[Rfam]
RNA: skipping-rope RNA
RNA sequence: UAGAAAUGAGGUAGAGAUUUUAGUGUCACUACGCACCUUAAAAGGUAUCUGAGAUGACGGGACAGGCACACCGUCCAUUUCAC
Numbered sequence: 001u002a003g004a005a006a007u008g009a010g011g012u013a014g015a016g017a018u019u020u021u022a023g024u025g026u027c028a029c030u031a032c033g034c035a036c037c038u039u040a041a042a043a044g045g046u047a048u049c050u051g052a053g054a055u056g057a058c059g060g061g062a063c064a065g066g067c068a069c070a071c072c073g074u075c076c077a078u079u080u081c082a083c
Base pairs, nucleotide, nucleotide: 003081004080005079006078007077008076011032012031013030014029023069024068025067026066027065034051035046036045037044038043056075057074058073059072060071